The family of this 68-nucleotide RNA sequence from Araneus ventricosus is "mir-2 microRNA precursor family".
Lineage of the source: Eukaryota > Ecdysozoa > Arthropoda > Entelegynae > Araneus.
Its family is annotated with RISC complex and miRNA-mediated post-transcriptional gene silencing in the Gene Ontology.
For this family Rfam cites "An extensive class of small RNAs in Caenorhabditis elegans" (Lee and Ambros, Science, 2001).
Pairs were carried over by alignment from the consensus structure, which was predicted with PFOLD.
RNA sequence: UCUCUCACAAAGUGGGUGUGUUUAUGUUUCAAUAUACUCCAUAUCACAGCCAGCUUUGAUGAGCGGAG
Numbered sequence: 001u002c003u004c005u006c007a008c009a010a011a012g013u014g015g016g017u018g019u020g021u022u023u024a025u026g027u028u029u030c031a032a033u034a035u036a037c038u039c040c041a042u043a044u045c046a047c048a049g050c051c052a053g054c055u056u057u058g059a060u061g062a063g064c065g066g067a068g
Stems, first nucleotide, its partner, number of pairs: 005062003008058005013052003017048004025043003